[Rfam]
RNA sequence: UCUGUCGUGAGGUGGAAUCUGAAGGAAGCUGUAGGCAAAUCUCUGGUCCGACGGACAGAAAUCGCAUAUAAGGCUAGGCUACGAGAGAUAAGUUGGCCGAAAGCAACGAAGUCUAAUAACUACCACAUUUGCAGUAGCAGAGUAGAUGCGGCGGAUAUAUGGAGAGAAAGAGCGAGCACC
Numbered sequence: 001u002c003u004g005u006c007g008u009g010a011g012g013u014g015g016a017a018u019c020u021g022a023a024g025g026a027a028g029c030u031g032u033a034g035g036c037a038a039a040u041c042u043c044u045g046g047u048c049c050g051a052c053g054g055a056c057a058g059a060a061a062u063c064g065c066a067u068a069u070a071a072g073g074c075u076a077g078g079c080u081a082c083g084a085g086a087g088a089u090a091a092g093u094u095g096g097c098c099g100a101a102a103g104c105a106a107c108g109a110a111g112u113c114u115a116a117u118a119a120c121u122a123c124c125a126c127a128u129u130u131g132c133a134g135u136a137g138c139a140g141a142g143u144a145g146a147u148g149c150g151g152c153g154g155a156u157a158u159a160u161g162g163a164g165a166g167a168a169a170g171a172g173c174g175a176g177c178a179c180c
Stems, first nucleotide, its partner, number of pairs: 001016006028180001030178003035173002040165006046156005062151006073143003078138005086114004092107004
Dot-bracket structure: ((((((....))))))...........(.(((..((...(((((((((((...........((((((.....(((..(((((...((((..((((........))))...))))...................)))))..)))..)))))))))))...))))))......))..))).)
RNA: Group II catalytic intron D1-D4-3